A member of the RNA family "Clostridiales-1 RNA" from Blautia sp. CAG:257, 157 nucleotides long.
RNA sequence: AUAAAGUUCCGGACAGCGGGCACAGUUUACGCAUGCCUGCAUGCAGGAGACUGUGCACAUUGGACGGGCUGACAGGAAUGAGCAGGCAGGACAAAAGCCCGGAUUGCGAAUUGCUGACGAUUACGGGAGUGCAUAAGCGCAGAGUAAUCGACUUUAU
Number, nucleotide and partner (000 for none) at each position: 001a157002u156003a155004a154005a153006g152007u151008u068009c067010c066011g065012g000013a000014c000015a061016g060017c000018g058019g000020g056021c055022a054023c053024a052025g051026u050027u049028u048029a000030c046031g044032c043033a042034u041035g040036c000037c000038u000039g000040c035041a034042u033043g032044c031045a000046g030047g000048a028049g027050a026051c025052u024053g023054u022055g021056c020057a000058c018059a000060u016061u015062g000063g000064a000065c011066g010067g009068g008069c000070u000071g000072a000073c116074a115075g114076g000077a112078a111079u110080g000081a000082g107083c106084a105085g104086g000087c000088a000089g100090g099091a000092c097093a000094a000095a000096a000097g092098c000099c090100c089101g000102g000103a000104u085105u084106g083107c082108g000109a000110a079111u078112u077113g000114c075115u074116g073117a000118c150119g149120a148121u147122u146123a145124c144125g000126g000127g000128a000129g140130u139131g138132c137133a000134u000135a000136a000137g132138c131139g130140c129141a000142g000143a000144g124145u123146a122147a121148u120149c119150g118151a007152c006153u005154u004155u003156a002157u001

Record summary: Lineage of the source: Bacteria > Bacillati > Clostridia > Lachnospirales > Blautia.